The family of this 452-nucleotide part of an RNA is "Eukaryotic large subunit ribosomal RNA".

RNA sequence: CGGCCUCAAGUCGAGCGACAGUACCCGCCGAAUUUAAGCAUAUUAAUAAGCGGAGGAAAAGAAACCAACAGGGAUUCCCUUAGUAGCGGCGAGCGAAGCGGGAGGAGCCCAAGCUCUGAAUCUGGGCGCGCGCCAAGUCCGUGCCCCGAAUUGUGGUCUCAUGGCAAGGCAUCGCUGAGCGCGGUCGCUGGUCGGGCAAAAGUCCCUUGGAAAAGGGCGCCAGGGAGGGUGACAGCCCCGUCCAUUGGUCCGGCAUCGCGGCCGUCUCGAUUGCGCUGUUGCACUUGCCCCAGAGUCGGGUUGUUUGGGAAUGCAGCCCUAAGCGGGUGGUAAAUCCCACCCAAGGCUAAAUAUUGUCAGCGAGAGACCGAUAGCGAACAAGUACCGUGAGGGAAAGAUGAAAAGGACUUUGAAAAGAGAGUCAAAAGUGCUUGAAAUUGUUAGGAGGGAAG
Dot-bracket structure: .......................(((((......((....)).......)))).).........((....))...((((......((.....)).....))))..((((...(((.(((.((.(((((((.........))))))).)).))).))).....((((((..((((.........(((((.(.((((((....(.((((......)))))..(...)..((.......)).........))))))..).))))).....))))............))))))........(((((((........))))))).....(((((........)))))..))))....................................((....))...............((((....)))).................................